[Rfam]
RNA: Fluoride riboswitch aptamer (crcB RNA motif)
Organism: Paenalicyclobacillus macrosporangiidus
RNA sequence: ACGCGAAUCGGCGAUGAGGCUCGCCACAACCGUCUGCCAGACAGACUGAUGACUCCUGCCCGGCG
Numbered sequence: 001a002c003g004c005g006a007a008u009c010g011g012c013g014a015u016g017a018g019g020c021u022c023g024c025c026a027c028a029a030c031c032g033u034c035u036g037c038c039a040g041a042c043a044g045a046c047u048g049a050u051g052a053c054u055c056c057u058g059c060c061c062g063g064c065g
Stems, first nucleotide, its partner, number of pairs: 010025004016056001018054002021051001032046004